[Rfam]
RNA sequence: AAACUGAAGACAUUCACAGCUCGUAUAAAUCCGGGAAUAAGGCCCGGAAGUUUCUACCCGGGAACCGUAAAUUUCCGGACUACGGAGAAAGUGAAGACGCAA
Numbered sequence: 001a002a003a004c005u006g007a008a009g010a011c012a013u014u015c016a017c018a019g020c021u022c023g024u025a026u027a028a029a030u031c032c033g034g035g036a037a038u039a040a041g042g043c044c045c046g047g048a049a050g051u052u053u054c055u056a057c058c059c060g061g062g063a064a065c066c067g068u069a070a071a072u073u074u075c076c077g078g079a080c081u082a083c084g085g086a087g088a089a090a091g092u093g094a095a096g097a098c099g100c101a102a
Base pairs, nucleotide, nucleotide: 021085022084023083024082025081030048031047032046033045034044035043058078059077060076061075062074063073064072
Dot-bracket structure: ....................(((((....((((((.......)))))).........(((((((.......)))))))..))))).................